[Rfam]
RNA sequence: GGCGAUGAUGUUUUGAUUUUGUUCCAUCUUGGAGAUGCAGGAGUUCCAAGUCCUUGUUCACAAGGAGAACUUACUUGGAGUUGGCCUUGCAUUCCUAUGACAUCAAUGGAUUUUAUCUGAU
Numbered sequence: 001g002g003c004g005a006u007g008a009u010g011u012u013u014u015g016a017u018u019u020u021g022u023u024c025c026a027u028c029u030u031g032g033a034g035a036u037g038c039a040g041g042a043g044u045u046c047c048a049a050g051u052c053c054u055u056g057u058u059c060a061c062a063a064g065g066a067g068a069a070c071u072u073a074c075u076u077g078g079a080g081u082u083g084g085c086c087u088u089g090c091a092u093u094c095c096u097a098u099g100a101c102a103u104c105a106a107u108g109g110a111u112u113u114u115a116u117c118u119g120a121u
Stems, first nucleotide, its partner, number of pairs: 001121001003119001052065005
Overview: The family of this 121-nucleotide RNA from Amborella trichopoda is "Small nucleolar RNA Z278". About the family: snoZ278 is a C/D box small nucleolar RNA. Its methylation guide targets have not been reported. The organism belongs to Amborella, within Eukaryota. The family's RNA type in Rfam is C/D-box small nucleolar RNA. Rfam links the family to the GO terms nucleolus and RNA processing. The match comes from Rfam's covariance-model search (39 bits).